[Rfam]
RNA: Actinobacteria sRNA Ms_AS-4
RNA sequence: CCGAGCGUCGGCGUAGCGCUGCGGGUCGUCCCCGAACUCGGCGAGCACCCGGGCGCCGAGCACGUGGCCCAGCCCGGGCUGG
Numbered sequence: 001c002c003g004a005g006c007g008u009c010g011g012c013g014u015a016g017c018g019c020u021g022c023g024g025g026u027c028g029u030c031c032c033c034g035a036a037c038u039c040g041g042c043g044a045g046c047a048c049c050c051g052g053g054c055g056c057c058g059a060g061c062a063c064g065u066g067g068c069c070c071a072g073c074c075c076g077g078g079c080u081g082g
Stems, first nucleotide, its partner, number of pairs: 008044003012040002018038001020036001022034004055079003060075001063072001